Notes
Shown here is a 235-nucleotide RNA sequence from Archaeoglobus fulgidus, a member of the family "Archaeal RNase P". About the family: Ribonuclease P (RNase P) is a ubiquitous endoribonuclease, found in archaea, bacteria and eukarya as well as chloroplasts and mitochondria. Its best characterised activity is the generation of mature 5'-ends of tRNAs by cleaving the 5'-leader elements of precursor-tRNAs. Cellular RNase Ps are ribonucleoproteins. RNA from bacterial RNase Ps retains its catalytic activity in the absence of the protein subunit, i.e. it is a ribozyme. Isolated eukaryotic and archaeal RNase P RNA has not been shown to retain its catalytic function, but is still essential for the catalytic activity of the holoenzyme. Although the archaeal and eukaryotic holoenzymes have a much greater protein content than the bacterial ones, the RNA cores from all the three lineages are homologous -- helices corresponding to P1, P2, P3, P4, and P10/11 are common to all cellular RNase P RNAs. Yet, there is considerable sequence variation, particularly among the eukaryotic RNAs. By type it is a ribozyme. The family's consensus secondary structure is taken from published work. A reference for the family is Frank and Pace (1998), "Ribonuclease P: unity and diversity in a tRNA processing ribozyme", Annu Rev Biochem. Lineage of the source: Archaea > Methanobacteriati > Archaeoglobaceae > Archaeoglobus > Archaeoglobus fulgidus. Rfam links the family to the GO terms tRNA processing, multimeric ribonuclease P complex and ribonuclease P activity.
[Rfam]
RNA sequence: GAGCGGCGGUGGGCGGCUGACCGAAAGGAGGAAAGUCCCCCCACCCGCUGUGGCGGAAGGCCCCUGAGAAGGGGCGGAGGAGGAACAGAAACGAGACCGGUGCGGGGAAAUGCGAUGAUUCCGCAAGGAUGAGGUCACCCGCUCCGGAUGAAACGGCCUCCUCCCCGCCGGGUGCAACGCGUAAGCGGCUCAGUCUAAUGCCGCCGGAACAGAAGGGGGCUUACUACCGCCACUC
Numbered sequence: 001g002a003g004c005g006g007c008g009g010u011g012g013g014c015g016g017c018u019g020a021c022c023g024a025a026a027g028g029a030g031g032a033a034a035g036u037c038c039c040c041c042c043a044c045c046c047g048c049u050g051u052g053g054c055g056g057a058a059g060g061c062c063c064c065u066g067a068g069a070a071g072g073g074g075c076g077g078a079g080g081a082g083g084a085a086c087a088g089a090a091a092c093g094a095g096a097c098c099g100g101u102g103c104g105g106g107g108a109a110a111u112g113c114g115a116u117g118a119u120u121c122c123g124c125a126a127g128g129a130u131g132a133g134g135u136c137a138c139c140c141g142c143u144c145c146g147g148a149u150g151a152a153a154c155g156g157c158c159u160c161c162u163c164c165c166c167g168c169c170g171g172g173u174g175c176a177a178c179g180c181g182u183a184a185g186c187g188g189c190u191c192a193g194u195c196u197a198a199u200g201c202c203g204c205c206g207g208a209a210c211a212g213a214a215g216g217g218g219g220c221u222u223a224c225u226a227c228c229g230c231c232a233c234u235c
Stems, first nucleotide, its partner, number of pairs: 001235003005231005011224001012205006021028002033222003037219005042174004052169005060075005076164002081159003097147004102142005120129002178187003